This 343-nucleotide RNA from Brevinema andersonii belongs to the Rfam family "Bacterial RNase P class A". The organism belongs to Brevinema, within Bacteria. It is annotated as a ribozyme.
RNA sequence: GUAGUAUUGUGAGAAAACGCUCAAAAAGAGAGGAAAGUCCGAACCUUAAAAAACCAAGAAGCGGUUAAGAGCCGCCCAUACAUUAUGUAUGAGGGAAAGUGUCACAGAAAAUAAACAGCUGUUAAAGCAAUGGUGAAAAGGUGGAGUAAGAGCCCACCGCUUUCUUCAUAAGGAGAAAGGCAUGACAAACCCUUCUUAAGGCAAGGUCAAGUAGGUAUUGAUAUUACUGGUUUUGUAAUUAAGUACGGGUAGACCGCAAAGAAUUUAUCGGUAACGAUAAAUCAAGAUAGAUGUUUUCAGAUCGAUAGAUCACAGAAUUCGGCUUAUGAUCAAUGCUACUGUU
Numbered sequence: 001g002u003a004g005u006a007u008u009g010u011g012a013g014a015a016a017a018c019g020c021u022c023a024a025a026a027a028g029a030g031a032g033g034a035a036a037g038u039c040c041g042a043a044c045c046u047u048a049a050a051a052a053a054c055c056a057a058g059a060a061g062c063g064g065u066u067a068a069g070a071g072c073c074g075c076c077c078a079u080a081c082a083u084u085a086u087g088u089a090u091g092a093g094g095g096a097a098a099g100u101g102u103c104a105c106a107g108a109a110a111a112u113a114a115a116c117a118g119c120u121g122u123u124a125a126a127g128c129a130a131u132g133g134u135g136a137a138a139a140g141g142u143g144g145a146g147u148a149a150g151a152g153c154c155c156a157c158c159g160c161u162u163u164c165u166u167c168a169u170a171a172g173g174a175g176a177a178a179g180g181c182a183u184g185a186c187a188a189a190c191c192c193u194u195c196u197u198a199a200g201g202c203a204a205g206g207u208c209a210a211g212u213a214g215g216u217a218u219u220g221a222u223a224u225u226a227c228u229g230g231u232u233u234u235g236u237a238a239u240u241a242a243g244u245a246c247g248g249g250u251a252g253a254c255c256g257c258a259a260a261g262a263a264u265u266u267a268u269c270g271g272u273a274a275c276g277a278u279a280a281a282u283c284a285a286g287a288u289a290g291a292u293g294u295u296u297u298c299a300g301a302u303c304g305a306u307a308g309a310u311c312a313c314a315g316a317a318u319u320c321g322g323c324u325u326a327u328g329a330u331c332a333a334u335g336c337u338a339c340u341g342u343u
Base pairs, nucleotide, nucleotide: 001339002338003337004336005335006334007333008332009331011327013298014297015296016295017294018293020030021029022028035325036324037323039322040321041320042319043318044201045200046199047198051233052232053231054230056197057196058195059194060193061075062074063073064072065071076093077091078090079089080088094192095191099190100189101186102185103184116132117131118128119127120126140158141157142156143155144154159181160179161178162177163176164175165174166173167172205255206254207253208252215246216245217244218243219242224238225237226236227235263282264281265280266279267278268277269276270275